RNA sequence: GCUUACUUGAAAUUUUCAUGUAAGAAUUAGGUAAUUGAGAGAUUGUUUUUAGCUAAGAAACAAUCUCUUUUUUUUAUUUUUCU
Numbered sequence: 001g002c003u004u005a006c007u008u009g010a011a012a013u014u015u016u017c018a019u020g021u022a023a024g025a026a027u028u029a030g031g032u033a034a035u036u037g038a039g040a041g042a043u044u045g046u047u048u049u050u051a052g053c054u055a056a057g058a059a060a061c062a063a064u065c066u067c068u069u070u071u072u073u074u075u076a077u078u079u080u081u082c083u
Stems, first nucleotide, its partner, number of pairs: 002024005009017003029078002033073002037069009046059004
Rfam assigns this 83-nucleotide RNA sequence from Prochlorococcus marinus to the family "Cyanobacterial functional RNA 19".
It is one of the family's seed sequences.
For this family Rfam cites "The challenge of regulation in a minimal photoautotroph: non-coding RNAs in Prochlorococcus" (Steglich et al., PLoS Genet, 2008).
Pairs were carried over by alignment from the consensus structure, which was predicted with mfold.